[Rfam]
RNA: Small nucleolar RNA SNORA44
Organism: Acanthisitta chloris
RNA sequence: CUGCAUGUUUAUCCAAGAGCUGUGGCUCCAGACAGUAGCUGCAGGUCUCCAACAACAUGCCAGAGCAACGGGAAGGUCUUUGACUGCAGGGCCCCUUCUGCCCGUGGCAGUCACUCGCCCCUCCUAUAUGU
Numbered sequence: 001c002u003g004c005a006u007g008u009u010u011a012u013c014c015a016a017g018a019g020c021u022g023u024g025g026c027u028c029c030a031g032a033c034a035g036u037a038g039c040u041g042c043a044g045g046u047c048u049c050c051a052a053c054a055a056c057a058u059g060c061c062a063g064a065g066c067a068a069c070g071g072g073a074a075g076g077u078c079u080u081u082g083a084c085u086g087c088a089g090g091g092c093c094c095c096u097u098c099u100g101c102c103c104g105u106g107g108c109a110g111u112c113a114c115u116c117g118c119c120c121c122u123c124c125u126a127u128a129u130g131u
Base pairs, nucleotide, nucleotide: 013044018040019039020038021037022036023035071124072123073122075120076119086111087110089103090102091101